The record is a 140-nucleotide sequence from Molossus molossus, which matches "Small Cajal body specific RNA 3" in Rfam. Rfam classes the family as a small Cajal body RNA. Pairs were carried over by alignment from the consensus structure, which was predicted with RNAalifold. From the family's description: scaRNAs are a specific class of small nuclear RNAs which localise to the Cajal bodies and guide the modification of RNA polymerase II transcribed spliceosomal RNAs U1, U2, U4, U5 and U12. Its Rfam clan is "SCARNA3 clan".
RNA sequence: CACAGAACCUGCAGGAACCAACAAUGUGGACAAAUGAAAAAUGCCUUUUGUCUAUAAAUUGCAGUGAUCCUAUAUAAACAUGGAGGUUUCUGUAUGGUUUAAGACAGCUGGCUAAGUCUGAUCGUUCCCCUCCACACAGC
Dot-bracket structure: ....((..((((............(((((((....((........))..)))))))....))))...))............(((((...(.((..((((((...........))))))..)).)....))))).......